[Rfam]
RNA sequence: GGAGAUCGGCGAUGGACGAGCGCCUUGCCAACCCGGUCAGGUCCGGAAGGAAGCAGCCGCAGUGAGUUUCGCCCGGGUUAUCUGUCCGGUCUCCCAC
Numbered sequence: 001g002g003a004g005a006u007c008g009g010c011g012a013u014g015g016a017c018g019a020g021c022g023c024c025u026u027g028c029c030a031a032c033c034c035g036g037u038c039a040g041g042u043c044c045g046g047a048a049g050g051a052a053g054c055a056g057c058c059g060c061a062g063u064g065a066g067u068u069u070c071g072c073c074c075g076g077g078u079u080a081u082c083u084g085u086c087c088g089g090u091c092u093c094c095c096a097c
Stems, first nucleotide, its partner, number of pairs: 004091005011082004017075002020072003024066005034059004042051003
Dot-bracket structure: ...(((((..((((..((.(((.(((((.....((((....(((....)))....))))..)))))...))).))...))))....)))))......
RNA: Bacterial small signal recognition particle RNA